[Rfam]
RNA sequence: CCGUACUAGAUGGGGAGCUAGCGGCACCCUAUAACCUGCAAUCCGCUAUAGCAGGAUUGAAUUCCCAAUGGAGGUAUCUCUAUUGUGGGGUCUGCCCCAAGUAAGUGGCGUUGACGAUUGGGUCUUACGCAACGAAAACUCAUGAACCCCGUCAGAUCCGGAAGGAAGCAGCGGUAAGUGAAUCCUUUCGUGUGCCGUGAGGUCGCCUGGUCCGAGUUAACUGCUUGGGUAACGCCUGGAAUAGGAUAUCGAUAUUGGGUGUACGG
Numbered sequence: 001c002c003g004u005a006c007u008a009g010a011u012g013g014g015g016a017g018c019u020a021g022c023g024g025c026a027c028c029c030u031a032u033a034a035c036c037u038g039c040a041a042u043c044c045g046c047u048a049u050a051g052c053a054g055g056a057u058u059g060a061a062u063u064c065c066c067a068a069u070g071g072a073g074g075u076a077u078c079u080c081u082a083u084u085g086u087g088g089g090g091u092c093u094g095c096c097c098c099a100a101g102u103a104a105g106u107g108g109c110g111u112u113g114a115c116g117a118u119u120g121g122g123u124c125u126u127a128c129g130c131a132a133c134g135a136a137a138a139c140u141c142a143u144g145a146a147c148c149c150c151g152u153c154a155g156a157u158c159c160g161g162a163a164g165g166a167a168g169c170a171g172c173g174g175u176a177a178g179u180g181a182a183u184c185c186u187u188u189c190g191u192g193u194g195c196c197g198u199g200a201g202g203u204c205g206c207c208u209g210g211u212c213c214g215a216g217u218u219a220a221c222u223g224c225u226u227g228g229g230u231a232a233c234g235c236c237u238g239g240a241a242u243a244g245g246a247u248a249u250c251g252a253u254a255u256u257g258g259g260u261g262u263a264c265g266g
Stems, first nucleotide, its partner, number of pairs: 001266006009058003012030004017025003035055005064259007073250005080244005086238004093231002097228006105221002107218003116212008124201006130192002133190005138183001140181004149174004157166003

About this RNA:
This 266-nucleotide RNA from Tissierella creatinophila belongs to the Rfam family "Bacterial large signal recognition particle RNA". The signal recognition particle (SRP) is a universally conserved ribonucleoprotein involved in the co-translational targeting of proteins to membranes. The source organism's lineage runs through Bacteria, Bacillota, Tissierellia, Tissierellaceae and Tissierella creatinophila. By type it is a non-coding RNA gene.